About this RNA: Glycine riboswitch aptamer: an 86-nucleotide RNA from Ureibacillus terrenus. It scores 39 bits against the family's covariance model.
RNA sequence: CUCUGGAGAGCGCUGAUUUUCAGCCACCCAAGGGGAAAGCCGGCUAUUUUGCUUAGCUGGUGUAACUUUCAGGUGCAAGGACAGAG
Numbered sequence: 001c002u003c004u005g006g007a008g009a010g011c012g013c014u015g016a017u018u019u020u021c022a023g024c025c026a027c028c029c030a031a032g033g034g035g036a037a038a039g040c041c042g043g044c045u046a047u048u049u050u051g052c053u054u055a056g057c058u059g060g061u062g063u064a065a066c067u068u069u070c071a072g073g074u075g076c077a078a079g080g081a082c083a084g085a086g
Base pairs, nucleotide, nucleotide: 001086002085003084004083005082012024013023014022015021026074027073028072030069033068034067035066039061040060041059042058043057044056045055046054